[Rfam]
Background
This 99-nucleotide RNA from Cellulomonas marina belongs to the Rfam family "Glycine riboswitch aptamer". Gene Ontology term of the family: glycine biosynthetic process.

RNA sequence: CGAGCCGUGGUGGGAGAGCUCCCGCCGCACCCACCGGCGCGACGCCGUAGGAGCAACCCUCCCCGGGAAACUCUCAGGCCCCCGCACCGCCACGGCGAG
Numbered sequence: 001c002g003a004g005c006c007g008u009g010g011u012g013g014g015a016g017a018g019c020u021c022c023c024g025c026c027g028c029a030c031c032c033a034c035c036g037g038c039g040c041g042a043c044g045c046c047g048u049a050g051g052a053g054c055a056a057c058c059c060u061c062c063c064c065g066g067g068a069a070a071c072u073c074u075c076a077g078g079c080c081c082c083c084g085c086a087c088c089g090c091c092a093c094g095g096c097g098a099g
Stems, first nucleotide, its partner, number of pairs: 006094008020042002023039005044079003047075001051073003057066002